[Rfam]
RNA sequence: UAGAAUCUAUACGACUGGCGGAUAAGAUGUGAAUACCGAUUUUAGGUUACAUGUCUGGUGAGAAAACUCACAGGGAGUAUAGAAAGAAAGAGCCGACCGCCUGGGCACUCAUU
Numbered sequence: 001u002a003g004a005a006u007c008u009a010u011a012c013g014a015c016u017g018g019c020g021g022a023u024a025a026g027a028u029g030u031g032a033a034u035a036c037c038g039a040u041u042u043u044a045g046g047u048u049a050c051a052u053g054u055c056u057g058g059u060g061a062g063a064a065a066a067c068u069c070a071c072a073g074g075g076a077g078u079a080u081a082g083a084a085a086g087a088a089a090g091a092g093c094c095g096a097c098c099g100c101c102u103g104g105g106c107a108c109u110c111a112u113u
Stems, first nucleotide, its partner, number of pairs: 006083007015074002017101005058071004090108001092106003
RNA: ZMP/ZTP riboswitch aptamer (pfl RNA motif)